This 94-nucleotide RNA from Thamnophis sirtalis belongs to the Rfam family "Small nucleolar RNA U83B". The literature on the family includes a 2000 paper in Nucleic Acids Res by Jady and Kiss, "Characterisation of the U83 and U84 small nucleolar RNAs: two novel 2'-O-ribose methylation guide RNAs that lack complementarities to ribosomal RNAs". The base pairs follow the family's consensus structure. The family has 21 seed sequences and 966 matches in Rfam 15.1. Its family is annotated with nucleolus and RNA processing in the Gene Ontology. U83B belongs to the C/D family of snoRNAs. The organism belongs to Thamnophis, within Eukaryota.
[Rfam]
RNA sequence: ACUGCUCAGUGAUGAGGACAUGGAAUAUGCACUGGGCACAGUGCCUGAGACCCAUGAGGAGUUUAUUCCAUGCUGCCUUCCUUCUGAGAGCAGC
Numbered sequence: 001a002c003u004g005c006u007c008a009g010u011g012a013u014g015a016g017g018a019c020a021u022g023g024a025a026u027a028u029g030c031a032c033u034g035g036g037c038a039c040a041g042u043g044c045c046u047g048a049g050a051c052c053c054a055u056g057a058g059g060a061g062u063u064u065a066u067u068c069c070a071u072g073c074u075g076c077c078u079u080c081c082u083u084c085u086g087a088g089a090g091c092a093g094c
Stems, first nucleotide, its partner, number of pairs: 002093004